[Rfam]
RNA sequence: GCUAAGAGGUUUUCUUCUCUAGUGUAGCUCUGUGACUUUGGAACCAUAGCUACCUGGCGAAGAAUUGCCCUUUCA
Dot-bracket structure: ....((.(...((((((.((((..(((((.(((.........)).).))))).)))).))))))...).))....
Overview: Shown here is a 75-nucleotide RNA sequence from Branchiostoma floridae, a member of the family "mir-4900 microRNA precursor family". Taxonomically the source falls in Branchiostoma (Eukaryota, Opisthokonta, Eumetazoa, Bilateria). Its family is annotated with RISC complex and miRNA-mediated post-transcriptional gene silencing in the Gene Ontology. The family's consensus secondary structure was predicted with RNAalifold. The family has 2 seed sequences and 18 matches in Rfam 15.1.